RNA sequence: GAUCGUAGAGGCAGAGCGGAAUAGGCGUUCAGGACGCGGGUUCAAUUCCCGCCGCCUCCACCACGAGCGCAUCGGCACGGUGCGUUCCUGAGGGGGGCGACUUGGGUUCGACUGGGCGCGGUAAAGGCUAGGCUGCGAUUGGGCUGAGCUACGGCCCUGAUAGUGCAAAUCCACAAAUGCCAACGACAACGUUGACAUGGGUGAGGUUCGCCUCGCGGCGUAA
Dot-bracket structure: (((((.........(((........(((.(((...(((((.......)))))(((((((.................................)))))))............))).)))........)))......)))))((((.........))))..................................................................